[Rfam]
RNA sequence: UUAUAGGACGUUUGGGCUAAUGAACUGUUUUGUAACUAAAGAAUAAAUUAUUCUUUGACAGAGAGGGACAAAACCGUUCAAUAGCUAAAACGUUCUAUAAC
Number, nucleotide and partner (000 for none) at each position: 001u100002u099003a098004u097005a096006g095007g000008a000009c000010g000011u090012u089013u088014g000015g086016g085017c084018u083019a082020a000021u080022g079023a078024a077025c076026u000027g074028u073029u062030u061031u060032g059033u058034a000035a056036c000037u000038a000039a000040a000041g000042a052043a051044u050045a049046a000047a000048u000049u045050a044051u043052u042053c000054u000055u000056u035057g000058a033059c032060a031061g030062a029063g000064a000065g000066g000067g000068a000069c000070a000071a000072a000073a028074c027075c000076g025077u024078u023079c022080a021081a000082u019083a018084g017085c016086u015087a000088a013089a012090a011091c000092g000093u000094u000095c006096u005097a004098u003099a002100a001101c000
A member of the RNA family "mir-8517 microRNA precursor family" from Plutella xylostella, 101 nucleotides long.
The base pairs follow the family's consensus structure, which was predicted with RNAalifold.
The match comes from Rfam's covariance-model search (80 bits).